[Rfam]
About this RNA:
The family of this 73-nucleotide sequence from Exaiptasia diaphana is "mir-2041 microRNA precursor family". The source organism's lineage runs through Eukaryota, Metazoa, Eumetazoa, Actiniaria and Exaiptasia. The match comes from Rfam's covariance-model search (73 bits).
RNA sequence: GACCCAGGGGUAUUUUCCUCUAACGCUUCACUCACGAGAAAAGUGAAACGUGAGAGGAAAAUGCCCCUGGGUC
Numbered sequence: 001g002a003c004c005c006a007g008g009g010g011u012a013u014u015u016u017c018c019u020c021u022a023a024c025g026c027u028u029c030a031c032u033c034a035c036g037a038g039a040a041a042a043g044u045g046a047a048a049c050g051u052g053a054g055a056g057g058a059a060a061a062u063g064c065c066c067c068u069g070g071g072u073c
Stems, first nucleotide, its partner, number of pairs: 001073021023051003027047006